[Rfam]
RNA sequence: CCCCCAAGGGGAAGCGAAGACCCUAUAGAGCUUUACUGCAGGCUGUCGCUGGGACACGGUCGCUGAUGUGCAGAAUAGGUAGGAGGCAUUACACAGGUACCCGCGCUAGCGGGCCACCGAGUCAUCAGUGAAAUACUACCCGUCAGUGACUGUGACCCUAACUCCGGGAGGAGGACACCGGUAGCCGGGCAGUUUGACUGGGGCGGUACGCGCUCGAAAAGAUAUCGAGCGCGCCCUACGUCCAUCUCAUCCGUGUCGGAGACGCGGAGAAGAGUGCAAGAGCAUAAGAUGGGCUGACAGUAUUCUUCACAACGAGGGAUGCUGACGCGAAAGCGUGGUCUAGCGAACCUAUGAGCCUGCUUGAUGCGGGCCAUAGAUGACAGAAAAGCUACCUUAGGGAUAACAGAGUCGUCACUCGCAAGAGCACAUAUCGACCGAGUGGCUUGCUACCUCGAUGUCGGUUCCCUCCAUCCUGCCCGUGCAGAAGCGGGCAAGGGUGAGGUUGUUCGCCUAUUAAAGGAGGUCGUGAGCUGGGUUUAGACCGUCGUGAGACAGGUCGGCUGCUAUCUAUUGGGGGUGUAU
Number, nucleotide and partner (000 for none) at each position: 001c577002c576003c575004c574005c573006a572007a571008g000009g000010g569011g568012a567013a000014g564015c563016g000017a000018a000019g000020a000021c000022c398023c397024u396025a395026u000027a394028g393029a390030g389031c388032u387033u386034u000035a193036c192037u191038g190039c000040a000041g000042g185043c184044u183045g182046u181047c180048g179049c000050u000051g158052g157053g156054a000055c154056a153057c152058g151059g150060u149061c148062g147063c146064u145065g144066a143067u142068g141069u000070g000071c000072a000073g000074a000075a000076u000077a000078g140079g139080u138081a137082g136083g000084a000085g123086g122087c121088a000089u000090u000091a000092c000093a000094c000095a000096g000097g000098u000099a000100c113101c112102c111103g110104c109105g000106c000107u000108a000109g104110c103111g102112g101113g100114c000115c000116a000117c000118c000119g000120a000121g087122u086123c085124a000125u000126c000127a000128g000129u000130g000131a000132a000133a000134u000135a000136c082137u081138a080139c079140c078141c068142g067143u066144c065145a064146g063147u062148g061149a060150c059151u058152g057153u056154g055155a000156c053157c052158c051159u000160a000161a000162c173163u172164c171165c170166g000167g000168g000169a000170g165171g164172a163173g162174g000175a000176c000177a000178c000179c048180g047181g046182u045183a044184g043185c042186c000187g000188g000189g000190c038191a037192g036193u035194u000195u000196g209197a207198c206199u205200g000201g000202g000203g000204c000205g199206g198207u197208a000209c196210g232211c231212g230213c229214u228215c227216g000217a000218a000219a000220a000221g000222a000223u000224a000225u000226c000227g215228a214229g213230c212231g211232c210233g000234c000235c338236c337237u000238a000239c000240g000241u293242c292243c291244a290245u289246c288247u273248c272249a000250u268251c267252c266253g265254u264255g263256u000257c000258g000259g000260a000261g000262a000263c255264g254265c253266g252267g251268a250269g000270a000271a000272g248273a247274g283275u282276g000277c000278a000279a000280g000281a000282g275283c274284a000285u000286a000287a000288g246289a245290u244291g243292g242293g241294c000295u000296g000297a000298c324299a323300g322301u321302a320303u319304u318305c317306u316307u000308c000309a000310c000311a000312a000313c000314g000315a000316g306317g305318g304319a303320u302321g301322c300323u299324g298325a000326c335327g000328c333329g000330a000331a000332a000333g328334c000335g326336u000337g236338g235339u000340c000341u000342a000343g000344c000345g000346a000347a000348c000349c376350u375351a374352u373353g372354a000355g371356c370357c369358u368359g367360c000361u000362u000363g000364a000365u000366g000367c359368g358369g357370g356371c355372c353373a352374u351375a350376g349377a000378u000379g000380a000381c000382a000383g000384a000385a000386a033387a032388g031389c030390u029391a000392c000393c028394u027395u025396a024397g023398g022399g000400a000401u000402a000403a000404c000405a000406g000407a448408g447409u446410c000411g445412u442413c441414a440415c439416u438417c437418g436419c000420a000421a000422g432423a431424g000425c000426a000427c000428a000429u000430a000431u423432c422433g000434a000435c000436c418437g417438a416439g415440u414441g413442g412443c000444u000445u411446g409447c408448u407449a000450c000451c000452u000453c000454g000455a000456u000457g000458u000459c534460g532461g531462u530463u529464c526465c523466c522467u521468c520469c519470a000471u000472c497473c496474u000475g000476c491477c490478c489479g488480u487481g000482c000483a000484g000485a000486a000487g480488c479489g478490g477491g476492c000493a000494a000495g000496g473497g472498u000499g000500a512501g511502g510503u509504u000505g000506u000507u000508c000509g503510c502511c501512u500513a000514u000515u000516a000517a000518a000519g469520g468521a467522g466523g465524u000525c000526g464527u000528g000529a463530g462531c461532u460533g000534g459535g000536u000537u000538u000539a000540g558541a557542c556543c555544g553545u552546c551547g000548u000549g000550a000551g546552a545553c544554a000555g543556g542557u541558c540559g000560g000561c000562u000563g015564c014565u000566a000567u012568c011569u010570a000571u007572u006573g005574g004575g003576g002577g001578u000579g000580u000581a000582u000

A member of the RNA family "Archaeal large subunit ribosomal RNA" from Halarchaeum acidiphilum, 582 nucleotides of a longer RNA. A search with the family's covariance model found it, with a score of 2828 bits. Taxonomically the source falls in Halarchaeum acidiphilum (Archaea, Methanobacteriota, Halobacteriales, Halarchaeum). The family's consensus secondary structure is taken from published work.